Small nucleolar RNA SNORA29: a 139-nucleotide sequence from Octodon degus. The family's RNA type in Rfam is H/ACA-box small nucleolar RNA. Rfam describes the family as follows. ACA29 is a member of the H/ACA class of snoRNA that guide the sites of modification of uridines to pseudouridines. For this family Rfam cites "RNomics: an experimental approach that identifies 201 candidates for novel, small, non-messenger RNAs in mouse" (Huttenhofer et al., EMBO J, 2001). The match comes from Rfam's covariance-model search (157 bits). Its Rfam clan is "SNORA20 clan". Rfam links the family to the GO terms RNA processing and nucleolus. The base pairs follow the family's consensus structure, which was predicted with PFOLD.
[Rfam]
RNA sequence: UUUCCCAUUUGACUACCACGUUUUCUCCUGUAGUAGAUUUUAGUGGCUAUGCUUGUGGGAUAGAGUAAAGUUGCCAUGAUCUGAAGAGGGAGGGUUUUUCAGUGUCCUCCUCCUAUAUGAAAUGGCCAGACAGAAAAGC
Numbered sequence: 001u002u003u004c005c006c007a008u009u010u011g012a013c014u015a016c017c018a019c020g021u022u023u024u025c026u027c028c029u030g031u032a033g034u035a036g037a038u039u040u041u042a043g044u045g046g047c048u049a050u051g052c053u054u055g056u057g058g059g060a061u062a063g064a065g066u067a068a069a070g071u072u073g074c075c076a077u078g079a080u081c082u083g084a085a086g087a088g089g090g091a092g093g094g095u096u097u098u099u100c101a102g103u104g105u106c107c108u109c110c111u112c113c114u115a116u117a118u119g120a121a122a123u124g125g126c127c128a129g130a131c132a133g134a135a136a137a138g139c
Stems, first nucleotide, its partner, number of pairs: 004059004016046004073126004091114004